[Rfam]
RNA sequence: UAGUUUUUUUUAAGUCAAAGUUGUCUAUUUUUUGACCAAGUAUAUAGGAAAUAUAUCAACAUCUACAAUAUCAAAUAAAUGCACUAUCAAAAAUAUAUUCAUGGUGUAUCUAAUGAAUCUCAUUUGAUGUUGUAGAUGUUGUGCAUUUUUUUAUAAACUUGAUAAAAGCUAGAUAAGUUUGACUUAGGACAAGGUAAA
Numbered sequence: 001u002a003g004u005u006u007u008u009u010u011u012a013a014g015u016c017a018a019a020g021u022u023g024u025c026u027a028u029u030u031u032u033u034g035a036c037c038a039a040g041u042a043u044a045u046a047g048g049a050a051a052u053a054u055a056u057c058a059a060c061a062u063c064u065a066c067a068a069u070a071u072c073a074a075a076u077a078a079a080u081g082c083a084c085u086a087u088c089a090a091a092a093a094u095a096u097a098u099u100c101a102u103g104g105u106g107u108a109u110c111u112a113a114u115g116a117a118u119c120u121c122a123u124u125u126g127a128u129g130u131u132g133u134a135g136a137u138g139u140u141g142u143g144c145a146u147u148u149u150u151u152u153a154u155a156a157a158c159u160u161g162a163u164a165a166a167a168g169c170u171a172g173a174u175a176a177g178u179u180u181g182a183c184u185u186a187g188g189a190c191a192a193g194g195u196a197a198a
Stems, first nucleotide, its partner, number of pairs: 004193003008189001010187010021176005030167005045153007054143003058140010071127006